[Rfam]
RNA sequence: UCCGCGCCAGGGGAUGGGGUGCCCCCUCUAACCGCCGAAGAGGCUGAUGACUCCUGUCGGAUU
Numbered sequence: 001u002c003c004g005c006g007c008c009a010g011g012g013g014a015u016g017g018g019g020u021g022c023c024c025c026c027u028c029u030a031a032c033c034g035c036c037g038a039a040g041a042g043g044c045u046g047a048u049g050a051c052u053c054c055u056g057u058c059g060g061a062u063u
Stems, first nucleotide, its partner, number of pairs: 010026004016054005034044003
Fluoride riboswitch aptamer (crcB RNA motif): a 63-nucleotide sequence from Methylosinus sp. 3S-1. A search with the family's covariance model found it, with a score of 54 bits. The source organism's lineage runs through Bacteria, Pseudomonadota, Alphaproteobacteria, Hyphomicrobiales and Methylosinus.